Background: Rfam assigns this 123-nucleotide RNA from Corynebacterium ulceribovis to the family "atpB RNA". By type it is a cis-regulatory element. Taxonomically the source falls in Corynebacterium ulceribovis (Bacteria, Mycobacteriales, Corynebacteriaceae, Corynebacterium).
RNA sequence: GAGUGACCGCUGCGCAGAUGUGCGACGGAGUCCGCGGCGGUCGCGUUUUCUAAAGAUGUCCAUCGCACCGCUAAUCAUUUGGUUAGCGGCCCGAACACGGGAGAGAACGCUGAGCGUUACAAC
Numbered sequence: 001g002a003g004u005g006a007c008c009g010c011u012g013c014g015c016a017g018a019u020g021u022g023c024g025a026c027g028g029a030g031u032c033c034g035c036g037g038c039g040g041u042c043g044c045g046u047u048u049u050c051u052a053a054a055g056a057u058g059u060c061c062a063u064c065g066c067a068c069c070g071c072u073a074a075u076c077a078u079u080u081g082g083u084u085a086g087c088g089g090c091c092c093g094a095a096c097a098c099g100g101g102a103g104a105g106a107a108c109g110c111u112g113a114g115c116g117u118u119a120c121a122a123c
Stems, first nucleotide, its partner, number of pairs: 001046001003044010068089009
Dot-bracket structure: (.((((((((((......................)))))))))).).....................(((((((((....)))))))))..................................